[Rfam]
RNA sequence: UGGGUCGGCCAGGCAAUCGCGAGAAAUCGAGGAACGUCCGGGCUCCAAAGGGCAGGGCGGUGGCUAACGGCCACCCGGGGUAACCCGCGAGAAAGUGCAACAGAGAGUAAACCGCCGCGCAAGCGGUAAGGGUGAAACGGUGGGGUAAGAGCCCACCAGCGGGGUGUGUGAGCACCUCGGCUAGGUAAACCUCGCCUGGAGCAAGACCAGACAGUUAGCUUAUAAGUUGCCCGCUUUGCUAACGGGUAGGUCGCUUGAAGUCUUGAGUAAUCAAGAUUCUAGAUAGAUGAUUGCCCCCGAAAGGGACAGAACCCGGCGUAUCGGCCGACCCAUCAC
Numbered sequence: 001u002g003g004g005u006c007g008g009c010c011a012g013g014c015a016a017u018c019g020c021g022a023g024a025a026a027u028c029g030a031g032g033a034a035c036g037u038c039c040g041g042g043c044u045c046c047a048a049a050g051g052g053c054a055g056g057g058c059g060g061u062g063g064c065u066a067a068c069g070g071c072c073a074c075c076c077g078g079g080g081u082a083a084c085c086c087g088c089g090a091g092a093a094a095g096u097g098c099a100a101c102a103g104a105g106a107g108u109a110a111a112c113c114g115c116c117g118c119g120c121a122a123g124c125g126g127u128a129a130g131g132g133u134g135a136a137a138c139g140g141u142g143g144g145g146u147a148a149g150a151g152c153c154c155a156c157c158a159g160c161g162g163g164g165u166g167u168g169u170g171a172g173c174a175c176c177u178c179g180g181c182u183a184g185g186u187a188a189a190c191c192u193c194g195c196c197u198g199g200a201g202c203a204a205g206a207c208c209a210g211a212c213a214g215u216u217a218g219c220u221u222a223u224a225a226g227u228u229g230c231c232c233g234c235u236u237u238g239c240u241a242a243c244g245g246g247u248a249g250g251u252c253g254c255u256u257g258a259a260g261u262c263u264u265g266a267g268u269a270a271u272c273a274a275g276a277u278u279c280u281a282g283a284u285a286g287a288u289g290a291u292u293g294c295c296c297c298c299g300a301a302a303g304g305g306a307c308a309g310a311a312c313c314c315g316g317c318g319u320a321u322c323g324g325c326c327g328a329c330c331c332a333u334c335a336c
Stems, first nucleotide, its partner, number of pairs: 001332010011321001012295007020029003034319003038316005043201004050232004055197005060074005075089001076087004090192002095190002097186002112131002114127005139157006159181001160179008205252004214243006224236004259278008
The record is a 336-nucleotide sequence from Candidatus Rhodoluna planktonica, which matches "Bacterial RNase P class A" in Rfam. It scores 310 bits against the family's covariance model. The source organism's lineage runs through Bacteria, Bacillati, Actinomycetes, Luna-1 subcluster and Rhodoluna.